[Rfam]
Nucleotides: 262
Base pairs, nucleotide, nucleotide: 005117006116007115008114009113010112011111012110013109014108015107016106017105020044021043022042023041026038027037028036029035048055049054061084062083063082064081068077069076070075087100088099089098090097120260121259123257127250128249129248130247131246132245136226137225138224139223140222141221142220144218145217146216147214149181150180151179152178156173157172158171159170160169161168162167186211187210188209191207192206194205195204228238229237230236
Number, partner (000 for none) and nucleotide at each position: 001000g002000a003000g004000u005117g006116u007115a008114c009113c010112u011111a012110u013109u014108c015107g016106g017105c018000g019000a020044g021043u022042c023041u024000a025000a026038c027037u028036c029035g030000a031000u032000u033000a034000u035029c036028g037027a038026g039000g040000a041023a042022g043021g044020c045000a046000c047000a048055g049054g050000g051000a052000a053000a054049c055048c056000g057000a058000u059000a060000c061084g062083a063082c064081c065000g066000c067000a068077g069076c070075c071000u072000c073000a074000c075070g076069g077068c078000c079000a080000g081064g082063g083062u084061c085000a086000c087100c088099g089098u090097c091000u092000u093000c094000a095000a096000g097090g098089g099088c100087g101000g102000g103000g104000a105017g106016c107015c108014g109013a110012g111011u112010g113009g114008g115007u116006a117005c118000g119000a120260c121259c122000c123257g124000a125000a126000a127250c128249c129248g130247a131246g132245u133000g134000a135000u136226c137225u138224a139223c140222a141221c142220g143000g144218g145217g146216g147214c148000a149181a150180g151179g152178u153000g154000a155000a156173g157172c158171g159170u160169g161168g162167c163000g164000a165000a166000a167162g168161c169160c170159a171158c172157g173156u174000g175000g176000a177000g178152g179151c180150c181149u182000g183000u184000u185000a186211g187210a188209g189000u190000u191207g192206g193000u194205g195204u196000c197000c198000u199000a200000c201000a202000a203000u204195a205194c206192c207191c208000u209188c210187u211186c212000g213000u214147g215000a216146c217145c218144c219000a220142u221141g222140u223139g224138u225137a226136g227000g228238g229237g230236u231000g232000a233000a234000a235000g236230g237229c238228c239000c240000a241000u242000c243000g244000a245132a246131c247130u248129c249128g250127g251000c252000a253000a254000c255000a256000g257123c258000u259121g260120g261000u262000u

Shown here is a 262-nucleotide part of an RNA from Haloprofundus sp. MHR1, a member of the family "Archaeal large subunit ribosomal RNA". The source organism's lineage runs through Archaea, Methanobacteriati, Methanobacteriota, Halobacteriales and Haloprofundus.